The family of this 74-nucleotide RNA from Methanothermus fervidus is "tRNA". The sequence is in the family's curated seed alignment. By type it is a transfer RNA.
[Rfam]
RNA sequence: GCCGCCGUAGCUCAGUAGGUAGGAGCGCUCGGCUGUUAACCGAGUGGUCGCAGGUUCGAGUCCUGCCGGCGGCG
Numbered sequence: 001g002c003c004g005c006c007g008u009a010g011c012u013c014a015g016u017a018g019g020u021a022g023g024a025g026c027g028c029u030c031g032g033c034u035g036u037u038a039a040c041c042g043a044g045u046g047g048u049c050g051c052a053g054g055u056u057c058g059a060g061u062c063c064u065g066c067c068g069g070c071g072g073c074g
Stems, first nucleotide, its partner, number of pairs: 001073007010026004028044005050066005